[Rfam]
RNA: mir-203 microRNA precursor family
Organism: Coregonus sp. 'balchen'
RNA sequence: CCCUCUUUGGUCCAGUGGUUCUUGACAGUUCAACAGUCUUUACCGAAAUUGUGAAAUGUUUAGGACCACUUGAUCAGCG
Numbered sequence: 001c002c003c004u005c006u007u008u009g010g011u012c013c014a015g016u017g018g019u020u021c022u023u024g025a026c027a028g029u030u031c032a033a034c035a036g037u038c039u040u041u042a043c044c045g046a047a048a049u050u051g052u053g054a055a056a057u058g059u060u061u062a063g064g065a066c067c068a069c070u071u072g073a074u075c076a077g078c079g
Base pairs, nucleotide, nucleotide: 014070015069016068017067018066019065021063022062024060025059026058027057029055030054031053032052